[Rfam]
RNA sequence: GAAGACCCUGUUGAGCUUGACUCUAGUCUGGCACUGUGAAGAGACAUGAGGGGUGUAGAAUAAGUGGGAGGCCCCGUCCCGAGCAGGCGCCGCGGUGAAAUACCACUACUCUUAUCGUUUCCUCACUUACCCGGUGAGGCAGGGAGGCGAGCCCCCGGCGGGUUCACGCUUCUGGAGUCCAAGCCCCGGGGCCCACGUGGUCCCGGGCGCGACCUGCCCCGGGGACAGUGGCAGGUGGGGAGUUUGACUGGGGCGGUACACCUGUCAAACGGUAACGCAGGUGUCCUAAGGCGAGCUCAGGGAGGACAGAAACCUCCCGUGGAGCAGAAGGGCAAAAGCUCGCUUGAUCUUGAUUUUCAGUAUGAGUACGGACCGUGAAAGCGGGGCCUCACGAUCCUUCUGGCUUUUUGGGUUUUAAGCAGGAGGUGUCAGAAAAGUUACCACAGGGAUAACUGGCUUGUGGCGGCCAAGCGUUCAUAGCGACGUCGCUUUUUGAUCCUUCGAUGUCGGCUCUUCCUAUCAUUGUGAAGCAGAAUUCACCAAGCGUUGGAUUGUUCACCCACUAAUAGGGAACGUGAGCUGGGUUUA
Numbered sequence: 001g002a003a004g005a006c007c008c009u010g011u012u013g014a015g016c017u018u019g020a021c022u023c024u025a026g027u028c029u030g031g032c033a034c035u036g037u038g039a040a041g042a043g044a045c046a047u048g049a050g051g052g053g054u055g056u057a058g059a060a061u062a063a064g065u066g067g068g069a070g071g072c073c074c075c076g077u078c079c080c081g082a083g084c085a086g087g088c089g090c091c092g093c094g095g096u097g098a099a100a101u102a103c104c105a106c107u108a109c110u111c112u113u114a115u116c117g118u119u120u121c122c123u124c125a126c127u128u129a130c131c132c133g134g135u136g137a138g139g140c141a142g143g144g145a146g147g148c149g150a151g152c153c154c155c156c157g158g159c160g161g162g163u164u165c166a167c168g169c170u171u172c173u174g175g176a177g178u179c180c181a182a183g184c185c186c187c188g189g190g191g192c193c194c195a196c197g198u199g200g201u202c203c204c205g206g207g208c209g210c211g212a213c214c215u216g217c218c219c220c221g222g223g224g225a226c227a228g229u230g231g232c233a234g235g236u237g238g239g240g241a242g243u244u245u246g247a248c249u250g251g252g253g254c255g256g257u258a259c260a261c262c263u264g265u266c267a268a269a270c271g272g273u274a275a276c277g278c279a280g281g282u283g284u285c286c287u288a289a290g291g292c293g294a295g296c297u298c299a300g301g302g303a304g305g306a307c308a309g310a311a312a313c314c315u316c317c318c319g320u321g322g323a324g325c326a327g328a329a330g331g332g333c334a335a336a337a338g339c340u341c342g343c344u345u346g347a348u349c350u351u352g353a354u355u356u357u358c359a360g361u362a363u364g365a366g367u368a369c370g371g372a373c374c375g376u377g378a379a380a381g382c383g384g385g386g387c388c389u390c391a392c393g394a395u396c397c398u399u400c401u402g403g404c405u406u407u408u409u410g411g412g413u414u415u416u417a418a419g420c421a422g423g424a425g426g427u428g429u430c431a432g433a434a435a436a437g438u439u440a441c442c443a444c445a446g447g448g449a450u451a452a453c454u455g456g457c458u459u460g461u462g463g464c465g466g467c468c469a470a471g472c473g474u475u476c477a478u479a480g481c482g483a484c485g486u487c488g489c490u491u492u493u494u495g496a497u498c499c500u501u502c503g504a505u506g507u508c509g510g511c512u513c514u515u516c517c518u519a520u521c522a523u524u525g526u527g528a529a530g531c532a533g534a535a536u537u538c539a540c541c542a543a544g545c546g547u548u549g550g551a552u553u554g555u556u557c558a559c560c561c562a563c564u565a566a567u568a569g570g571g572a573a574c575g576u577g578a579g580c581u582g583g584g585u586u587u588a
Stems, first nucleotide, its partner, number of pairs: 007447004012443002014439005020243004027235004032230002036126004041121005046115007063107005070091002130223005140216004149165006183210002186207002246259001247257003260282006285386002291343006297323002300318006324333002348372003353367004374383003397425006405419003456497001458495001460494001462490006471481002508583001509581004513575001514572005521546001525540005548562003552558001